[Rfam]
RNA: L31-Corynebacteriaceae ribosomal protein leader
Organism: Corynebacterium striatum
RNA sequence: ACUCGGGCACGAUCUGCGCCGCCGAUUACUGUAAGUAAGUUGCAAGUUUUAGGGCUUUGCCAGGCAAAAGAGCGUAGAACCGACCCGUAGUUUCAACCCUGAGGGA
Numbered sequence: 001a002c003u004c005g006g007g008c009a010c011g012a013u014c015u016g017c018g019c020c021g022c023c024g025a026u027u028a029c030u031g032u033a034a035g036u037a038a039g040u041u042g043c044a045a046g047u048u049u050u051a052g053g054g055c056u057u058u059g060c061c062a063g064g065c066a067a068a069a070g071a072g073c074g075u076a077g078a079a080c081c082g083a084c085c086c087g088u089a090g091u092u093u094c095a096a097c098c099c100u101g102a103g104g105g106a
Stems, first nucleotide, its partner, number of pairs: 001091003004087004013078007030044005